[Rfam]
RNA sequence: UCGGGCCUGUGAUGAUUUAACAUUUGCCUACAUUGUCUGAACAACUUCAUCUUGAACGAGACACUUGCUAAUUCUGAGGCCUUA
Numbered sequence: 001u002c003g004g005g006c007c008u009g010u011g012a013u014g015a016u017u018u019a020a021c022a023u024u025u026g027c028c029u030a031c032a033u034u035g036u037c038u039g040a041a042c043a044a045c046u047u048c049a050u051c052u053u054g055a056a057c058g059a060g061a062c063a064c065u066u067g068c069u070a071a072u073u074c075u076g077a078g079g080c081c082u083u084a
Stems, first nucleotide, its partner, number of pairs: 001084001004081004
Shown here is an 84-nucleotide RNA sequence from Striga hermonthica, a member of the family "Small nucleolar RNA SNORD34". The base pairs follow the family's consensus structure, which was predicted with PFOLD. The organism belongs to Striga, within Eukaryota. The family's RNA type in Rfam is C/D-box small nucleolar RNA. For this family Rfam cites "Purified box C/D snoRNPs are able to reproduce site-specific 2'-O-methylation of target RNA in vitro" (Galardi et al., Mol Cell Biol, 2002).